Description
This 128-nucleotide RNA from Tepidanaerobacter acetatoxydans belongs to the Rfam family "FMN riboswitch aptamer (RFN element)". About the family: The RFN element is a highly conserved domain that is found frequently in the 5'-untranslated regions of prokaryotic mRNAs that encode for flavin mononucleotide (FMN) biosynthesis and transport proteins.
RNA sequence: UAUAAUCUUCAGGGCAGGGUGUGAUUCCCGACCGGCGGUAAUGCGGCAAGUUCCGUUAGCCCGCGAGCGAAAGCAGACUCGGUUAGAUUCCGAGGCCGACAGUAAAGUCUGGAUGAAAGAAGAUUGAU
Numbered sequence: 001u002a003u004a005a006u007c008u009u010c011a012g013g014g015c016a017g018g019g020u021g022u023g024a025u026u027c028c029c030g031a032c033c034g035g036c037g038g039u040a041a042u043g044c045g046g047c048a049a050g051u052u053c054c055g056u057u058a059g060c061c062c063g064c065g066a067g068c069g070a071a072a073g074c075a076g077a078c079u080c081g082g083u084u085a086g087a088u089u090c091c092g093a094g095g096c097c098g099a100c101a102g103u104a105a106a107g108u109c110u111g112g113a114u115g116a117a118a119g120a121a122g123a124u125u126g127a128u
Base pairs, nucleotide, nucleotide: 003126004125005124006123007122008121009120010119017029018028019027031108032107033098034097035064036063037062038061059096060095067074068073078094079093080092081091082090100111101110102109